[Rfam]
Shown here is an 83-nucleotide RNA sequence from Ceyx cyanopectus, a member of the family "Small nucleolar RNA SNORD103/SNORD85". The family's RNA type in Rfam is C/D-box small nucleolar RNA. On this family, see Huttenhofer et al., EMBO J 2001: "RNomics: an experimental approach that identifies 201 candidates for novel, small, non-messenger RNAs in mouse". The family has 41 seed sequences and 1,349 matches in Rfam 15.1. The match comes from Rfam's covariance-model search (75 bits).
RNA sequence: UCUGGCAAUGAUGCCACACUUGCCCUCACUGAGAACACUGUUCAAUAAUGAGCCUCUCGUGUGCUCACAUGAGCUGAGCCAGA
Dot-bracket structure: ((((((.......................................................................))))))